The record is a 171-nucleotide RNA sequence from Halothermothrix orenii, which matches "glmS glucosamine-6-phosphate activated ribozyme aptamer" in Rfam. The literature on the family includes a 2004 paper in Nature by Winkler et al., "Control of gene expression by a natural metabolite-responsive ribozyme". Rfam's curators write: This entry contains a glucosamine-6-phosphate activated ribozyme that is found in the mRNA for GlmS. GlmS is an enzyme that uses fructose-6-phosphate and glutamine to generate glucosamine-6-phosphate. The ribozyme catalyses self cleavage of the glmS mRNA that is thought to regulate GlmS activity. Its family is annotated with regulation of gene expression and catalytic activity in the Gene Ontology. It scores 122 bits against the family's covariance model.

RNA sequence: AUUUAAAGAAAAGCGCCUGGACUUAGAUGAAAAUAUUAUCUUCAUCUAAGUUGACGAGGGAGGGGGUUAUCGAAAUGAUCGGCGGAUGCCCCCAGGCCUUCUGCCGGGCCUGAAGUCAUUCCUCAAACCCGUGGAGUGAUCUACGGAACAAAGGGAAUGACAGGCAGAAAA
Numbered sequence: 001a002u003u004u005a006a007a008g009a010a011a012a013g014c015g016c017c018u019g020g021a022c023u024u025a026g027a028u029g030a031a032a033a034u035a036u037u038a039u040c041u042u043c044a045u046c047u048a049a050g051u052u053g054a055c056g057a058g059g060g061a062g063g064g065g066g067u068u069a070u071c072g073a074a075a076u077g078a079u080c081g082g083c084g085g086a087u088g089c090c091c092c093c094a095g096g097c098c099u100u101c102u103g104c105c106g107g108g109c110c111u112g113a114a115g116u117c118a119u120u121c122c123u124c125a126a127a128c129c130c131g132u133g134g135a136g137u138g139a140u141c142u143a144c145g146g147a148a149c150a151a152a153g154g155g156a157a158u159g160a161c162a163g164g165c166a167g168a169a170a171a
Stems, first nucleotide, its partner, number of pairs: 020052008029043003062093005070082004094111006115161007129146007